[Rfam]
A member of the RNA family "int-alpA RNA" from Citrobacter youngae, 70 nucleotides long.
Rfam 15.1 lists 577 matches to the family in 491 species.
The family's consensus secondary structure is taken from published work.
Rfam's curators write: Acidobacteria (1 example), Planctomycetes (1 example), Proteobacteria.

RNA sequence: GCUGUGCCUAGGCUGAUCCCCGAAAACCAGUACACCUCUACUGGCUGGCAUGGCCCCCAAAUUAAAGAGG
Dot-bracket structure: ((((((((..((.......)).....(((((...[[[[[)))))..))))))))...........]]]]]